[Rfam]
RNA sequence: CUCACUUUGUGUAAAUAACACACACAUGUCGGCACGUUCGCCGGGGUGCUCCUGAGGUGUUUCACCGGAUGGGGUCGGCGUAAUGGGACAUGUGGAGGCAUAAC
Numbered sequence: 001c002u003c004a005c006u007u008u009g010u011g012u013a014a015a016u017a018a019c020a021c022a023c024a025c026a027u028g029u030c031g032g033c034a035c036g037u038u039c040g041c042c043g044g045g046g047u048g049c050u051c052c053u054g055a056g057g058u059g060u061u062u063c064a065c066c067g068g069a070u071g072g073g074g075u076c077g078g079c080g081u082a083a084u085g086g087g088a089c090a091u092g093u094g095g096a097g098g099c100a101u102a103a104c
Stems, first nucleotide, its partner, number of pairs: 023094008035085004040079004048075005
A member of the RNA family "t44 RNA" from Pectobacterium atrosepticum, 104 nucleotides long. This family consists of a number of bacterial RNA genes of between 135 and 170 bases in length. Rfam classes the family as a small RNA. The source organism's lineage runs through Bacteria, Pseudomonadota, Enterobacterales, Pectobacteriaceae and Pectobacterium atrosepticum.